[Rfam]
RNA sequence: CCGGCUUCCAUUGGGGAGUAGCCGCCUGGAGCCAAUGCUCCGGGGGCCACGUCAACAGACUUGACCGUCGUCGCAAUGGCAGACGGUUAUGGCGUGGUCAGCAACAUCCUGGGUGCCC
Dot-bracket structure: .........................(((............))).((((((((((.......((((((((............))))))))))))))))))...................
RNA: Manganese Mn2+ riboswitch aptamer (yybP-ykoY)
Organism: Ralstonia pseudosolanacearum